[Rfam]
RNA sequence: UGGGUUAUAGCCAAGUGGUAAGGCAAUGGUUUUUGGUACCAUCAUGCGCUGGUUCGAAUCCAGCUAACCCAA
Dot-bracket structure: (((((((..(((.........))).(((((.......))))).....(((((.......)))))))))))).
This 72-nucleotide sequence from Lactobacillus rodentium belongs to the Rfam family "tRNA". NCBI's taxonomy places the organism under Bacteria, Bacillota, Bacilli, Lactobacillales, Lactobacillus. It is annotated as a transfer RNA.